[Rfam]
RNA: sRNA-Xcc1
RNA sequence: GGCCGGGUGUCUGCGACCAUAAAAUACCCUUCGGGGGAAAGCCGCAGGCCGUCCGAUAGCGGUGUUCAAGCACCCGGUCUCGUCCCU
Numbered sequence: 001g002g003c004c005g006g007g008u009g010u011c012u013g014c015g016a017c018c019a020u021a022a023a024a025u026a027c028c029c030u031u032c033g034g035g036g037g038a039a040a041g042c043c044g045c046a047g048g049c050c051g052u053c054c055g056a057u058a059g060c061g062g063u064g065u066u067c068a069a070g071c072a073c074c075c076g077g078u079c080u081c082g083u084c085c086c087u
Base pairs, nucleotide, nucleotide: 001079002078003077004076005075006074007073008072009071012046013045014044015043017041027036028035029034048063049062050061051060052059